This 86-nucleotide RNA from Aegotheles bennettii belongs to the Rfam family "Small nucleolar RNA SNORD91 family". Its family is annotated with RNA processing and nucleolus in the Gene Ontology. The pairing is the family consensus, mapped onto this sequence. A search with the family's covariance model found it, with a score of 54 bits. On this family, see Huttenhofer et al., EMBO J 2001: "RNomics: an experimental approach that identifies 201 candidates for novel, small, non-messenger RNAs in mouse". The family's RNA type in Rfam is C/D-box small nucleolar RNA.
RNA sequence: GCAGGAAGCCUGUGAUGUUUAGUGUCUGAACCUGGCUGAAGGAUUCUUCUGAAGACACACUCCCAGGGUCUGAGGCUUCCAGGGGA
Number, nucleotide and partner (000 for none) at each position: 001g000002c000003a000004g080005g079006a078007a077008g076009c075010c074011u000012g000013u000014g000015a000016u000017g000018u000019u000020u000021a000022g000023u000024g000025u000026c000027u000028g000029a000030a000031c000032c000033u000034g000035g000036c000037u000038g000039a000040a000041g000042g000043a000044u000045u000046c000047u000048u000049c000050u000051g000052a000053a000054g000055a000056c000057a000058c000059a000060c000061u000062c000063c000064c000065a000066g000067g000068g000069u000070c000071u000072g000073a000074g010075g009076c008077u007078u006079c005080c004081a000082g000083g000084g000085g000086a000